[Rfam]
RNA sequence: AUCUAUAAAAGGCAAACCCGUCGGAAGGCGGUGACGCAAAGCUUUAGGGGCUUACAUGCAAAAUUGUUGCAUCAGCCAGCCAGCUGCCGAG
Number, nucleotide and partner (000 for none) at each position: 001a000002u000003c000004u000005a000006u000007a000008a000009a000010a000011g000012g037013c036014a000015a000016a000017c000018c031019c030020g029021u028022c027023g000024g000025a000026a000027g022028g021029c020030g019031g018032u000033g000034a000035c000036g013037c012038a000039a000040a085041g084042c083043u082044u000045u000046a000047g081048g080049g077050g076051c075052u000053u000054a000055c000056a072057u071058g070059c069060a068061a067062a000063a000064u000065u000066g000067u061068u060069g059070c058071a057072u056073c000074a000075g051076c050077c049078a000079g000080c048081c047082a043083g042084c041085u040086g000087c000088c000089g000090a000091g000

This 91-nucleotide sequence from Paenibacillus sp. CAA11 belongs to the Rfam family "c-di-GMP-I riboswitch aptamer". GEMM was predicted in a large-scale screen for bacterial structured RNA regulatory elements. Clan: c-di-GMP_I riboswitch clan. Taxonomically the source falls in Paenibacillus (Bacteria, Bacillati, Bacillota, Paenibacillaceae).